RNA: MIR474 microRNA precursor family
RNA sequence: CCCAACACUAUUGGGUUCUGCUGGGUAGCAGGACCCAACGCUAUUAGCUCCUUUUGGAAGUGUUUUGGGUCUGACUUGGCAGCCAGACUUAAUAGCGUUGGGUCCAGCUGCCAAGUUAGACCCAAUAGCUUUUGGUA
Numbered sequence: 001c002c003c004a005a006c007a008c009u010a011u012u013g014g015g016u017u018c019u020g021c022u023g024g025g026u027a028g029c030a031g032g033a034c035c036c037a038a039c040g041c042u043a044u045u046a047g048c049u050c051c052u053u054u055u056g057g058a059a060g061u062g063u064u065u066u067g068g069g070u071c072u073g074a075c076u077u078g079g080c081a082g083c084c085a086g087a088c089u090u091a092a093u094a095g096c097g098u099u100g101g102g103u104c105c106a107g108c109u110g111c112c113a114a115g116u117u118a119g120a121c122c123c124a125a126u127a128g129c130u131u132u133u134g135g136u137a
Base pairs, nucleotide, nucleotide: 001135002134004132005131008128009127010126011125012124013123014122015121016120017119020116021115022114024112025111026110027109028108029107031051032050033049035047037045038044055106056105057104058103